[Rfam]
RNA sequence: GAGCGCGCUCCGGGAUCGGUGCAACUCCGAACCGGCGGUGACAGUCCGCGACCCGAUGGGCUGGAGCAGCCCAGCGGUGGACCCGGUGAAAUUCCGGGACCGACGGUGAAAGUCCGGAUGGGAGGCAGCGCGC
Numbered sequence: 001g002a003g004c005g006c007g008c009u010c011c012g013g014g015a016u017c018g019g020u021g022c023a024a025c026u027c028c029g030a031a032c033c034g035g036c037g038g039u040g041a042c043a044g045u046c047c048g049c050g051a052c053c054c055g056a057u058g059g060g061c062u063g064g065a066g067c068a069g070c071c072c073a074g075c076g077g078u079g080g081a082c083c084c085g086g087u088g089a090a091a092u093u094c095c096g097g098g099a100c101c102g103a104c105g106g107u108g109a110a111a112g113u114c115c116g117g118a119u120g121g122g123a124g125g126c127a128g129c130g131c132g133c
Base pairs, nucleotide, nucleotide: 003131004130005129006128009125010124017029018028019027031113032112033102034101035049036048037047038046044100045099053077054076082098083097084096085095086094104116105115106114
The family of this 133-nucleotide RNA sequence from Acidothermus cellulolyticus is "FMN riboswitch aptamer (RFN element)".